[Rfam]
Nucleotides: 072
Stems, first nucleotide, its partner, number of pairs: 005068006015057001018059002021055007
Number, partner (000 for none) and nucleotide at each position: 001000a002000c003000u004000a005068g006067g007066a008065g009064u010063a011000g012000a013000a014000g015057c016000g017000g018059u019058c020000u021055g022054u023053a024052a025051u026050a027049g028000c029000g030000a031000g032000c033000c034000a035000u036000u037000g038000a039000g040000a041000c042000u043000c044000u045000c046000a047000a048000g049027c050026u051025a052024u053023u054022g055021c056000u057015g058019g059018a060000c061000a062000u063010u064009g065008c066007u067006c068005c069000a070000a071000u072000a
The family of this 72-nucleotide sequence from Vibrio natriegens is "Xanthine riboswitch aptamer (NMT1 RNA)". NCBI's taxonomy places the organism under Bacteria, Pseudomonadota, Vibrionales, Vibrio, Vibrio natriegens. A reference for the family is Yu and Breaker (2020), "A bacterial riboswitch class senses xanthine and uric acid to regulate genes associated with purine oxidation", RNA.